Source information: Rfam assigns this 79-nucleotide RNA sequence from Nannospalax galili to the family "mir-3473 microRNA precursor family". Pairs were carried over by alignment from the consensus structure, which was predicted with RNAalifold. NCBI's taxonomy places the organism under Eukaryota, Eumetazoa, Chordata, Mammalia, Nannospalax. A search with the family's covariance model found it, with a score of 74 bits.
[Rfam]
RNA sequence: ACUGCUGAGCCAUCUCUCCAGCCCCCAGAAUUCCUUUUUUUAAAAAAAAGCCUCAGGGCUGGAGAGAUGGUUCAGUGGU
Numbered sequence: 001a002c003u004g005c006u007g008a009g010c011c012a013u014c015u016c017u018c019c020a021g022c023c024c025c026c027a028g029a030a031u032u033c034c035u036u037u038u039u040u041u042a043a044a045a046a047a048a049a050g051c052c053u054c055a056g057g058g059c060u061g062g063a064g065a066g067a068u069g070g071u072u073c074a075g076u077g078g079u
Stems, first nucleotide, its partner, number of pairs: 002078023